[Rfam]
RNA sequence: UUUUAUCCUUUGCGUUAGGGAUUGAAACGGCAUCCUUUUCUUCGCCUUUUUAGGCGGAGAAAGAUAUAGUGUAAAGCCCGUAAAAAC
Number, nucleotide and partner (000 for none) at each position: 001u000002u000003u000004u000005a000006u000007c000008c000009u000010u000011u000012g000013c000014g000015u000016u000017a000018g079019g078020g077021a000022u075023u074024g000025a000026a000027a070028c069029g000030g000031c000032a065033u064034c063035c000036u000037u000038u061039u060040c059041u058042u057043c056044g055045c054046c000047u000048u000049u000050u000051u000052a000053g000054g045055c044056g043057g042058a041059g040060a039061a038062a000063g034064a033065u032066a000067u000068a000069g028070u027071g000072u000073a000074a023075a022076g000077c020078c019079c018080g000081u000082a000083a000084a000085a000086a000087c000
RNA: Flavo-1 RNA
Organism: Pedobacter psychrophilus